Shown here is an 86-nucleotide sequence from Solanum commersonii, a member of the family "MIR8024 microRNA precursor family". A search with the family's covariance model found it, with a score of 72 bits.

RNA sequence: UUGAAGAAUUUGAAUACUUCAACUUGAAGACUUAAAGAAUUUGAAGACCUCAACUUGCACACUUCAAGAAUUUGAAGAUUUCAACU
Dot-bracket structure: ((((((..((((((..(((.(...((.(...((.(.(..........).).))..).))....).)))..))))))..))))))..